The record is a 119-nucleotide sequence from Treponema porcinum, which matches "TD-1 RNA" in Rfam.
Rfam 15.1 lists 147 matches to the family in 9 species.
The family is grouped with related families in Rfam's "TD (Treponema denticola) motifs".
The match comes from Rfam's covariance-model search (68 bits).
RNA sequence: UUUUAUUUUUAAGUUUGCGUUGCAAACUUGUAUUAUUAAAUACUGUUCCUCAUUGCAUUGCGGAACAGUGUAAAAAAGUCAAUCGAUUGUUGAAACAAUCUUCUUGACUUUUUAUGGGA
Numbered sequence: 001u002u003u004u005a006u007u008u009u010u011a012a013g014u015u016u017g018c019g020u021u022g023c024a025a026a027c028u029u030g031u032a033u034u035a036u037u038a039a040a041u042a043c044u045g046u047u048c049c050u051c052a053u054u055g056c057a058u059u060g061c062g063g064a065a066c067a068g069u070g071u072a073a074a075a076a077a078g079u080c081a082a083u084c085g086a087u088u089g090u091u092g093a094a095a096c097a098a099u100c101u102u103c104u105u106g107a108c109u110u111u112u113u114a115u116g117g118g119a
Stems, first nucleotide, its partner, number of pairs: 011029008042069008073113010085100006